[Rfam]
RNA: Guanidine-II riboswitch aptamer (mini-ykkC)
RNA sequence: CGGUGAGGACGACCUCACGACGCACCGCGUGACCACUCCGGGGACGGCCCCA
Numbered sequence: 001c002g003g004u005g006a007g008g009a010c011g012a013c014c015u016c017a018c019g020a021c022g023c024a025c026c027g028c029g030u031g032a033c034c035a036c037u038c039c040g041g042g043g044a045c046g047g048c049c050c051c052a
Stems, first nucleotide, its partner, number of pairs: 003018006040051004